[Rfam]
RNA sequence: GGCAUUUUAUUUCUAAACCAUGAUUAGCCCCGGAAUCUAAUUAUGUUUUAAGAAACUUAAAAUACAAAAU
Numbered sequence: 001g002g003c004a005u006u007u008u009a010u011u012u013c014u015a016a017a018c019c020a021u022g023a024u025u026a027g028c029c030c031c032g033g034a035a036u037c038u039a040a041u042u043a044u045g046u047u048u049u050a051a052g053a054a055a056c057u058u059a060a061a062a063u064a065c066a067a068a069a070u
Base pairs, nucleotide, nucleotide: 006066008064009063010062011061012060019045020044021043022042023041024040025039026038027037

Rfam assigns this 70-nucleotide RNA from Oceanobacillus indicireducens to the family "Ribosomal protein L13 leader". This family is a putative r-protein leader autoregulatory structure found in B. subtilis and other low-GC Gram-positive bacteria. It is located in the 5' untranslated regions of mRNAs encoding the L13-S9 (rplM-rpsI) ribosomal protein operon. The family's RNA type in Rfam is cis-regulatory leader. On this family, see Zengel and Lindahl, Prog Nucleic Acid Res Mol Biol 1994: "Diverse mechanisms for regulating ribosomal protein synthesis in Escherichia coli". Pairs were carried over by alignment from the consensus structure, which was predicted with CMfinder.